[Rfam]
RNA sequence: UUGUCAUUACCCAGAAUGCUGUUUCUCAUUUGCUGUAGACAUGACCAUAAAAAAUUUCCCCACUAGCAUUCUAUAUGCUACUUUGUUAGCAAUUGUUGGAUCUGGAGACCUAA
Numbered sequence: 001u002u003g004u005c006a007u008u009a010c011c012c013a014g015a016a017u018g019c020u021g022u023u024u025c026u027c028a029u030u031u032g033c034u035g036u037a038g039a040c041a042u043g044a045c046c047a048u049a050a051a052a053a054a055u056u057u058c059c060c061c062a063c064u065a066g067c068a069u070u071c072u073a074u075a076u077g078c079u080a081c082u083u084u085g086u087u088a089g090c091a092a093u094u095g096u097u098g099g100a101u102c103u104g105g106a107g108a109c110c111u112a113a
Stems, first nucleotide, its partner, number of pairs: 003045005010038001018033002021030001060105003067098002076091003
Small nucleolar RNA SNORA32: a 113-nucleotide RNA from Castor canadensis. Lineage of the source: Eukaryota > Amniota > Boreoeutheria > Castorimorpha > Castor. ACA32 is a member of the H/ACA class of snoRNA that guide the sites of modification of uridines to pseudouridines.